[Rfam]
RNA sequence: CCCCUUUGAAUCCGCCGCGUCCCGUCCUAUAUCAACGUUGUCCCUUCGGGGACUAUGGACAUAAACGCGCUCGUAAUAAGCGGCUCGGACCCGGGGGCGGUACCCGGCGACUCCACCAAACAUCCUUUCAUUUGGGAUCAUGGGGUCGAAAUAGGAUCGACGAACGUCUAAAGGGGUUAUGCUUUGUCUCGGCUGUCUGCCACCGUUACCGGCGAAAAAAGUACAAUUGCAAAUGACAAUCGUGCUCCGAUGGCUCUGGCCGCGUAAGCGGUUCGAGUGAUCGAAACCUAAGUCCUUGCGUUUAGCGACGUAAGGCGGGGUUCGCAGGUACCUGGCAACAGAAACCUGCACU
Numbered sequence: 001c002c003c004c005u006u007u008g009a010a011u012c013c014g015c016c017g018c019g020u021c022c023c024g025u026c027c028u029a030u031a032u033c034a035a036c037g038u039u040g041u042c043c044c045u046u047c048g049g050g051g052a053c054u055a056u057g058g059a060c061a062u063a064a065a066c067g068c069g070c071u072c073g074u075a076a077u078a079a080g081c082g083g084c085u086c087g088g089a090c091c092c093g094g095g096g097g098c099g100g101u102a103c104c105c106g107g108c109g110a111c112u113c114c115a116c117c118a119a120a121c122a123u124c125c126u127u128u129c130a131u132u133u134g135g136g137a138u139c140a141u142g143g144g145g146u147c148g149a150a151a152u153a154g155g156a157u158c159g160a161c162g163a164a165c166g167u168c169u170a171a172a173g174g175g176g177u178u179a180u181g182c183u184u185u186g187u188c189u190c191g192g193c194u195g196u197c198u199g200c201c202a203c204c205g206u207u208a209c210c211g212g213c214g215a216a217a218a219a220a221g222u223a224c225a226a227u228u229g230c231a232a233a234u235g236a237c238a239a240u241c242g243u244g245c246u247c248c249g250a251u252g253g254c255u256c257u258g259g260c261c262g263c264g265u266a267a268g269c270g271g272u273u274c275g276a277g278u279g280a281u282c283g284a285a286a287c288c289u290a291a292g293u294c295c296u297u298g299c300g301u302u303u304a305g306c307g308a309c310g311u312a313a314g315g316c317g318g319g320g321u322u323c324g325c326a327g328g329u330a331c332c333u334g335g336c337a338a339c340a341g342a343a344a345c346c347u348g349c350a351c352u
Stems, first nucleotide, its partner, number of pairs: 040053005057189005067182002069177004081166002085163003091107005108148007190205003196215002199213003318333004324349006
Alphaproteobacteria transfer-messenger RNA: a 352-nucleotide sequence from Pseudooceanicola spongiae.
Rfam describes the family as follows. Bacterial tmRNA, also known as 10Sa RNA or SsrA, is named for its dual tRNA and mRNA-like properties. Its role is to liberate the mRNA from a stalled ribosome. To accomplish this part of the tmRNA is used as a reading frame that ends in a translation stop signal. The broken mRNA is replaced in the ribosome by the tmRNA and translation of the tmRNA leads to addition of a proteolysis tag to the incomplete protein enabling recognition by a protease.
A search with the family's covariance model found it, with a score of 306 bits.
The base pairs follow the family's consensus structure, which is taken from published work.